[Rfam]
RNA: Small nucleolar RNA SNORA57
RNA sequence: CCUCCACGUCUUGGCAUACAUGUUGUUGCUAAGUUCUUGUGUAUGUAAUGUACAGAGGUAGAACAAAGCCAGUGCUAUAUCUUCGGUACAGUGUGUGUUAUCGUCUGCUGGUCCUAUCCUCAAUAGCUGGCACACUU
Number, nucleotide and partner (000 for none) at each position: 001c058002c057003u056004c055005c000006a000007c000008g000009u000010c000011u000012u000013g000014g000015c045016a044017u043018a042019c041020a040021u000022g038023u000024u000025g036026u000027u000028g000029c000030u000031a000032a000033g000034u000035u000036c025037u000038u022039g000040u020041g019042u018043a017044u016045g015046u000047a000048a000049u000050g000051u000052a000053c000054a000055g004056a003057g002058g001059u000060a000061g000062a000063a000064c000065a000066a000067a000068g000069c000070c129071a128072g127073u126074g000075c000076u000077a000078u000079a000080u000081c000082u000083u000084c000085g000086g000087u000088a000089c111090a000091g109092u000093g108094u107095g106096u000097g000098u000099u000100a000101u000102c000103g000104u000105c000106u095107g094108c093109u091110g000111g089112u000113c000114c000115u000116a000117u000118c000119c000120u000121c000122a000123a000124u000125a000126g073127c072128u071129g070130g000131c000132a000133c000134a000135c000136u000137u000